[Rfam]
RNA sequence: UUCCUCUGAUUUGUGGAAGAGGCUGAAAAUCUCGGUACAUCAUGUGUUGUCAUCAGCUUCGUCUCUUGAUCCUACGAGAUGGGAGUUAAAUAACGGCACGAAAUUU
Numbered sequence: 001u002u003c004c005u006c007u008g009a010u011u012u013g014u015g016g017a018a019g020a021g022g023c024u025g026a027a028a029a030u031c032u033c034g035g036u037a038c039a040u041c042a043u044g045u046g047u048u049g050u051c052a053u054c055a056g057c058u059u060c061g062u063c064u065c066u067u068g069a070u071c072c073u074a075c076g077a078g079a080u081g082g083g084a085g086u087u088a089a090a091u092a093a094c095g096g097c098a099c100g101a102a103a104u105u106u
Base pairs, nucleotide, nucleotide: 043100044099045098046097047096048095049094055087056086057085058084059083060082062079063078064077065076
The family of this 106-nucleotide sequence from Triticum aestivum is "Small nucleolar RNA snoR97". For this family Rfam cites "Experimental RNomics: identification of 140 candidates for small non-messenger RNAs in the plant Arabidopsis thaliana" (Marker et al., Curr Biol, 2002). The organism belongs to Triticum, within Eukaryota.